[Rfam]
RNA sequence: GGUGAUAAAUGUUGCCGUGAAAUAGGUUGCAUGGACCCGGGGGCGGUACCCGGCGGCUCCACCAAAAGGCGCCCGCACGAUAGCAGGGCGCCUCCUGAUGGGGCCGAAACAGCUUCGACAUGUGCUGAAAGACGGUGAUUUUGCCCGGCCUGAGGACGCCGUAAAACUGUUCAAACUCUAUAGAUGCCAACGAUAACGAGGCAUUUGCGAUUGCUGCGUAA
Numbered sequence: 001g002g003u004g005a006u007a008a009a010u011g012u013u014g015c016c017g018u019g020a021a022a023u024a025g026g027u028u029g030c031a032u033g034g035a036c037c038c039g040g041g042g043g044c045g046g047u048a049c050c051c052g053g054c055g056g057c058u059c060c061a062c063c064a065a066a067a068g069g070c071g072c073c074c075g076c077a078c079g080a081u082a083g084c085a086g087g088g089c090g091c092c093u094c095c096u097g098a099u100g101g102g103g104c105c106g107a108a109a110c111a112g113c114u115u116c117g118a119c120a121u122g123u124g125c126u127g128a129a130a131g132a133c134g135g136u137g138a139u140u141u142u143g144c145c146c147g148g149c150c151u152g153a154g155g156a157c158g159c160c161g162u163a164a165a166a167c168u169g170u171u172c173a174a175a176c177u178c179u180a181u182a183g184a185u186g187c188c189a190a191c192g193a194u195a196a197c198g199a200g201g202c203a204u205u206u207g208c209g210a211u212u213g214c215u216g217c218g219u220a221a
Stems, first nucleotide, its partner, number of pairs: 001145005015135004028124002031121003037053005054106007146161004